[Rfam]
Description
The record is a 104-nucleotide RNA from Virgibacillus indicus, which matches "Purine riboswitch aptamer" in Rfam. Riboswitches are metabolite binding domains within certain messenger RNAs that serve as precision sensors for their corresponding targets. A reference for the family is Reining et al. (2013), "Three-state mechanism couples ligand and temperature sensing in riboswitches", Nature. The match comes from Rfam's covariance-model search (71 bits).
RNA sequence: AUUUAAACUGAAUAAUGCGUUCGUAUAUCUUCAGGGGAUAUGGUCCUGAAAGUUUCUACCGGAGCACCGUAAAAGCUCUGACUAUGAAGGCAGAAUCUAAAGUU
Numbered sequence: 001a002u003u004u005a006a007a008c009u010g011a012a013u014a015a016u017g018c019g020u021u022c023g024u025a026u027a028u029c030u031u032c033a034g035g036g037g038a039u040a041u042g043g044u045c046c047u048g049a050a051a052g053u054u055u056c057u058a059c060c061g062g063a064g065c066a067c068c069g070u071a072a073a074a075g076c077u078c079u080g081a082c083u084a085u086g087a088a089g090g091c092a093g094a095a096u097c098u099a100a101a102g103u104u
Stems, first nucleotide, its partner, number of pairs: 018090001020088006030050006060080006